Nucleotides: 140
Base pairs, nucleotide, nucleotide: 003071005069006067009064010063011062025059026058028056086133087132088131089130093126094125095124096123104119105118106117
Number, partner (000 for none) and nucleotide at each position: 001000u002000g003071g004000g005069c006067u007000g008000g009064c010063c011062a012000a013000u014000u015000c016000a017000c018000u019000u020000a021000g022000u023000a024000u025059g026058c027000c028056a029000u030000a031000c032000u033000g034000u035000g036000u037000c038000u039000a040000a041000g042000a043000u044000u045000u046000u047000u048000a049000a050000a051000u052000u053000c054000u055000u056028u057000u058026g059025c060000u061000g062011u063010g064009g065000a066000u067006a068000u069005g070000a071003c072000c073000a074000u075000a076000a077000a078000g079000a080000a081000a082000a083000a084000u085000u086133c087132c088131c089130a090000u091000u092000a093126g094125g095124u096123u097000u098000u099000c100000c101000a102000u103000a104119u105118g106117c107000u108000a109000c110000u111000u112000a113000a114000c115000u116000a117106g118105c119104a120000g121000u122000u123096a124095a125094c126093c127000u128000g129000c130089u131088g132087g133086g134000a135000a136000c137000a138000u139000u140000u
Shown here is a 140-nucleotide sequence from Rattus norvegicus, a member of the family "Small nucleolar RNA SNORA32". About the family: ACA32 is a member of the H/ACA class of snoRNA that guide the sites of modification of uridines to pseudouridines. Rfam 15.1 lists 615 matches to the family in 234 species. It scores 82 bits against the family's covariance model.